Overview
The record is a 537-nucleotide part of an RNA from Leptospira interrogans, which matches "Bacterial small subunit ribosomal RNA" in Rfam. Clan: SSU clan. Pairs were carried over by alignment from the consensus structure, which is taken from published work.
RNA sequence: AACACGGAGAGUUUGAUCCUGGCUCAGAACUAACGCUGGCGGCGCGUCUUAAACAUGCAAGUCAAGCGGAGUAGCAAUACUCAGCGGCGAACGGGUGAGUAACACGUGGGUAAUCUUCCUCUGAGUCUGGGAUAACUUUCCGAAAGGGAAGCUAAUACUGGAUGGUCCCGAGAGAUCAUAAGAUUUUUCGGGUAAAGAUUUAUUGCUCGGAGAUGAGCCCGCGUCCGAUUAGCUAGUUGGUGAGGUAAAGGCUCACCAAGGCGACGAUCGGUAGCCGGCCUGAGAGGGUGUUCGGCCACAAUGGAACUGAGACACGGUCCAUACUCCUACGGGAGGCAGCAGUUAAGAAUCUUGCUCAAUGGGGGGAACCCUGAAGCAGCGACGCCGCGUGAACGAUGAAGGUCUUCGGAUUGUAAAGUUCAGUAAGCAGGGAAAAAUAAGCAGCAAUGUGAUGAUGGUACCUGCCUAAAGCACCGGCUAACUACGUGCCAGCAGCCGCGGUAAUACGUAUGGUGCAAGCGUUGUUCGGAAUCAUUG
Numbered sequence: 001a002a003c004a005c006g007g008a009g010a011g012u013u014u015g016a017u018c019c020u021g022g023c024u025c026a027g028a029a030c031u032a033a034c035g036c037u038g039g040c041g042g043c044g045c046g047u048c049u050u051a052a053a054c055a056u057g058c059a060a061g062u063c064a065a066g067c068g069g070a071g072u073a074g075c076a077a078u079a080c081u082c083a084g085c086g087g088c089g090a091a092c093g094g095g096u097g098a099g100u101a102a103c104a105c106g107u108g109g110g111u112a113a114u115c116u117u118c119c120u121c122u123g124a125g126u127c128u129g130g131g132a133u134a135a136c137u138u139u140c141c142g143a144a145a146g147g148g149a150a151g152c153u154a155a156u157a158c159u160g161g162a163u164g165g166u167c168c169c170g171a172g173a174g175a176u177c178a179u180a181a182g183a184u185u186u187u188u189c190g191g192g193u194a195a196a197g198a199u200u201u202a203u204u205g206c207u208c209g210g211a212g213a214u215g216a217g218c219c220c221g222c223g224u225c226c227g228a229u230u231a232g233c234u235a236g237u238u239g240g241u242g243a244g245g246u247a248a249a250g251g252c253u254c255a256c257c258a259a260g261g262c263g264a265c266g267a268u269c270g271g272u273a274g275c276c277g278g279c280c281u282g283a284g285a286g287g288g289u290g291u292u293c294g295g296c297c298a299c300a301a302u303g304g305a306a307c308u309g310a311g312a313c314a315c316g317g318u319c320c321a322u323a324c325u326c327c328u329a330c331g332g333g334a335g336g337c338a339g340c341a342g343u344u345a346a347g348a349a350u351c352u353u354g355c356u357c358a359a360u361g362g363g364g365g366g367a368a369c370c371c372u373g374a375a376g377c378a379g380c381g382a383c384g385c386c387g388c389g390u391g392a393a394c395g396a397u398g399a400a401g402g403u404c405u406u407c408g409g410a411u412u413g414u415a416a417a418g419u420u421c422a423g424u425a426a427g428c429a430g431g432g433a434a435a436a437a438u439a440a441g442c443a444g445c446a447a448u449g450u451g452a453u454g455a456u457g458g459u460a461c462c463u464g465c466c467u468a469a470a471g472c473a474c475c476g477g478c479u480a481a482c483u484a485c486g487u488g489c490c491a492g493c494a495g496c497c498g499c500g501g502u503a504a505u506a507c508g509u510a511u512g513g514u515g516c517a518a519g520c521g522u523u524g525u526u527c528g529g530a531a532u533c534a535u536u537g
Stems, first nucleotide, its partner, number of pairs: 009025005027527004032523006039388006045381002047346001052344003056341003061088003066085002069082005095299003104224008114216002119212007127161004136151006167192007175184003197204002225271003232262003237259008274296004278289004301322005324335004352378001354377003360373005391421004401412004427465005435456001441450003471516005483510004492499002